[Rfam]
RNA sequence: CAGGACCCCAUUGUGCUUGAUCUAACCAUGUGGUUCUACCCCAGUACAUGGUUAUGCCAAGCACUCUGGGGACUUG
Dot-bracket structure: ((((.((((...(((((((....((((((((..............))))))))....)))))))...)))).))))
The family of this 76-nucleotide RNA from Scleropages formosus is "mir-218 microRNA precursor family". Rfam links the family to the GO terms miRNA-mediated post-transcriptional gene silencing and RISC complex. The literature on the family includes a 2005 paper in Genes Dev by Chen et al., "The developmental miRNA profiles of zebrafish as determined by small RNA cloning".